[Rfam]
RNA sequence: AUGGCUUCACUUUCGUCAAUAAAUCGCACCUAUAAUUGUUUGUGCGACGAUGCAUAAAGCGAAGCUAGAAAAUUGUUCUCCUCGCUAUCCGGUGCCGCGGUCGUGCUGCAUCUGGACGUCGGGGAACUACAUUU
Numbered sequence: 001a002u003g004g005c006u007u008c009a010c011u012u013u014c015g016u017c018a019a020u021a022a023a024u025c026g027c028a029c030c031u032a033u034a035a036u037u038g039u040u041u042g043u044g045c046g047a048c049g050a051u052g053c054a055u056a057a058a059g060c061g062a063a064g065c066u067a068g069a070a071a072a073u074u075g076u077u078c079u080c081c082u083c084g085c086u087a088u089c090c091g092g093u094g095c096c097g098c099g100g101u102c103g104u105g106c107u108g109c110a111u112c113u114g115g116a117c118g119u120c121g122g123g124g125a126a127c128u129a130c131a132u133u134u
Stems, first nucleotide, its partner, number of pairs: 002068001003066003008061001010059004016054001017049001024047005034039001075127007083118002088116005097106003
RNA: Small nucleolar RNA snoR136
Organism: Vitis rotundifolia